[Rfam]
A member of the RNA family "mir-6131 microRNA precursor family" from Aotus nancymaae, 108 nucleotides long. A search with the family's covariance model found it, with a score of 87 bits.

Nucleotides: 108
Base pairs, nucleotide, nucleotide: 001107002106003105004104005103006095009092010091011090012088013087014086015085018082019081020080021079022078024076025075026074028072029071030070032068033066034065035064038061040059041058044055045054046053
Number, partner (000 for none) and nucleotide at each position: 001107u002106c003105c004104u005103g006095c007000c008000u009092u010091c011090c012088u013087u014086c015085u016000g017000c018082u019081u020080u021079g022078g023000u024076c025075a026074g027000g028072u029071g030070g031000u032068g033066c034065u035064c036000u037000c038061c039000u040059u041058c042000c043000a044055u045054g046053g047000g048000u049000g050000u051000a052000g053046c054045c055044a056000g057000a058041g059040a060000u061038g062000u063000u064035g065034a066033g067000g068032u069000g070030c071029u072028g073000g074026c075025u076024g077000c078022u079021c080020a081019g082018a083000g084000g085015g086014g087013a088012g089000u090011g091010g092009a093000c094000a095006g096000a097000g098000a099000g100000g101000c102000c103005c104004g105003g106002g107001g108000u